This 133-nucleotide sequence from Ursus americanus belongs to the Rfam family "Small nucleolar RNA SNORA71". A reference for the family is Ganot et al. (1997), "The family of box ACA small nucleolar RNAs is defined by an evolutionarily conserved secondary structure and ubiquitous sequence elements essential for RNA accumulation", Genes Dev. From the family's description: The members of this family belong to the H/ACA class of snoRNAs which bind a number of proteins (including dyskerin, Gar1p and Nop10p) to form snoRNP complexes. This class of snoRNAs are thought to guide the sites of modification of uridines to pseudouridines by forming direct base pairing interactions with substrate RNAs. Lineage of the source: Eukaryota > Boreoeutheria > Caniformia > Ursidae > Ursus. Rfam 15.1 lists 1,805 matches to the family in 606 species. Gene Ontology terms of the family: nucleolus and RNA processing. The base pairs follow the family's consensus structure, which was predicted with PFOLD.
RNA sequence: UCCUGCAUUCGAAAGUGAUUGUGGGCUGCCUGUGCCCUGGUCAUCGAUAGUGCAGGGAGAGAAGUUGCUGAAAGCGUUUCCCCGUGUUAGAAGGGCCCAUCCCGUCCCUUCCAAACUCUGGAGCUUUCGGACA
Numbered sequence: 001u002c003c004u005g006c007a008u009u010c011g012a013a014a015g016u017g018a019u020u021g022u023g024g025g026c027u028g029c030c031u032g033u034g035c036c037c038u039g040g041u042c043a044u045c046g047a048u049a050g051u052g053c054a055g056g057g058a059g060a061g062a063a064g065u066u067g068c069u070g071a072a073a074g075c076g077u078u079u080c081c082c083c084g085u086g087u088u089a090g091a092a093g094g095g096c097c098c099a100u101c102c103c104g105u106c107c108c109u110u111c112c113a114a115a116c117u118c119u120g121g122a123g124c125u126u127u128c129g130g131a132c133a
Stems, first nucleotide, its partner, number of pairs: 001057009015044007023037004069129007086116003090112001091110005